[Rfam]
Background: Shown here is a 535-nucleotide part of an RNA from Notodromas monacha, a member of the family "Eukaryotic small subunit ribosomal RNA". Lineage of the source: Eukaryota > Panarthropoda > Ostracoda > Cypridocopina > Notodromas. The base pairs follow the family's consensus structure, which is taken from published work. It scores 1660 bits against the family's covariance model. The family is grouped with related families in Rfam's "SSU clan".
RNA sequence: CGGUUUAAAAGCUCGUAGUUGGAUCCGAGUUCCGGGCAUAUCAUCCACCUCACGGUGGUUAAGAUAUGUGCUGGACCCCUUGCUGGUGCUACUGAGGUGCCCUUUACUGGGUGCUUUGGUAGACCACAGCGAUUUACUUUGAAAAAAUUGGAGUGCUCAAAGCAGGCGAUGGCCAGCUGUACAGUCGUGCAUGGAAUAAUGGAAAAGGGCCUCAGUGCUUAUUUGUUGGUUCACAGUUCGUGAGGUAAUGGUUGAAAGGGACAGACGGGGGCAUUCGUAUUGCGACGUUAGAGGUGAAAUUCUUAGAUCGUCGCAAGACGGACUACUGCGAAAGCAUUUGCCAAGAAUGUUUUCAUUAAUCAAGAACGAAAGUCAGAGGUUCGAAGGCGAUCAGAUACCGCCCUAGUUCUGACCUUAAACGAUGCCUACUGGCGAUCCGUUGGGGGUAUUUCAAUGACCUGACGGGCAGCUUCCGGGAAACCAAAGUAUUGGGUUCCGGGGGAAGUAUGGUUGCAAAGCUGGAACUUAAAGGAAU
Numbered sequence: 001c002g003g004u005u006u007a008a009a010a011g012c013u014c015g016u017a018g019u020u021g022g023a024u025c026c027g028a029g030u031u032c033c034g035g036g037c038a039u040a041u042c043a044u045c046c047a048c049c050u051c052a053c054g055g056u057g058g059u060u061a062a063g064a065u066a067u068g069u070g071c072u073g074g075a076c077c078c079c080u081u082g083c084u085g086g087u088g089c090u091a092c093u094g095a096g097g098u099g100c101c102c103u104u105u106a107c108u109g110g111g112u113g114c115u116u117u118g119g120u121a122g123a124c125c126a127c128a129g130c131g132a133u134u135u136a137c138u139u140u141g142a143a144a145a146a147a148u149u150g151g152a153g154u155g156c157u158c159a160a161a162g163c164a165g166g167c168g169a170u171g172g173c174c175a176g177c178u179g180u181a182c183a184g185u186c187g188u189g190c191a192u193g194g195a196a197u198a199a200u201g202g203a204a205a206a207g208g209g210c211c212u213c214a215g216u217g218c219u220u221a222u223u224u225g226u227u228g229g230u231u232c233a234c235a236g237u238u239c240g241u242g243a244g245g246u247a248a249u250g251g252u253u254g255a256a257a258g259g260g261a262c263a264g265a266c267g268g269g270g271g272c273a274u275u276c277g278u279a280u281u282g283c284g285a286c287g288u289u290a291g292a293g294g295u296g297a298a299a300u301u302c303u304u305a306g307a308u309c310g311u312c313g314c315a316a317g318a319c320g321g322a323c324u325a326c327u328g329c330g331a332a333a334g335c336a337u338u339u340g341c342c343a344a345g346a347a348u349g350u351u352u353u354c355a356u357u358a359a360u361c362a363a364g365a366a367c368g369a370a371a372g373u374c375a376g377a378g379g380u381u382c383g384a385a386g387g388c389g390a391u392c393a394g395a396u397a398c399c400g401c402c403c404u405a406g407u408u409c410u411g412a413c414c415u416u417a418a419a420c421g422a423u424g425c426c427u428a429c430u431g432g433c434g435a436u437c438c439g440u441u442g443g444g445g446g447u448a449u450u451u452c453a454a455u456g457a458c459c460u461g462a463c464g465g466g467c468a469g470c471u472u473c474c475g476g477g478a479a480a481c482c483a484a485a486g487u488a489u490u491g492g493g494u495u496c497c498g499g500g501g502g503a504a505g506u507a508u509g510g511u512u513g514c515a516a517a518g519c520u521g522g523a524a525c526u527u528a529a530a531g532g533a534a535u
Stems, first nucleotide, its partner, number of pairs: 001498003009495001011367001013365002018360003258354004262349002266345001270342004276320002280316008291302003328335002372413006382406001386402004424494003427488003431471003436466008445458001447456001475482002500527003509520004
Dot-bracket structure: (((.....(.(.((...(((.............................................................................................................................................................................................................................................((((((..(...((((..((..((((((((...(((......)))......))))))))..)).......((....))...))))..)..)).))))...)))...)).)....((((((....(...((((.........))))...).))))))..........((((((.(((..((((((((.(.(........).)))))))))..)))...((....))...)))...))))))).(((......((((....))))....)))........